[Rfam]
RNA sequence: GGCACUUCAGGUGGCUCUGGGGCGAAAGUACUGACGACAGACCAGAAGCGGGAAGCCGUGGAGGUCAUGUGUGAGGCAAUGGGUCUGUCGCAACGCCGUGCCUGCAGUCUGGCUGGUC
Number, nucleotide and partner (000 for none) at each position: 001g000002g000003c000004a000005c000006u000007u000008c000009a000010g000011g000012u000013g000014g000015c000016u000017c000018u000019g000020g000021g000022g000023c000024g000025a000026a000027a000028g000029u000030a000031c000032u000033g000034a000035c090036g089037a088038c087039a086040g085041a084042c083043c082044a000045g000046a000047a000048g059049c058050g057051g056052g000053a000054a000055g000056c051057c050058g049059u048060g000061g000062a000063g080064g000065u078066c000067a000068u000069g000070u000071g000072u000073g000074a000075g000076g000077c000078a065079a000080u063081g000082g043083g042084u041085c040086u039087g038088u037089c036090g035091c000092a000093a000094c000095g000096c000097c000098g000099u000100g000101c000102c000103u000104g000105c000106a000107g000108u000109c000110u000111g000112g000113c000114u000115g000116g000117u000118c000
RNA: Insertion sequence IS1222 ribosomal frameshifting element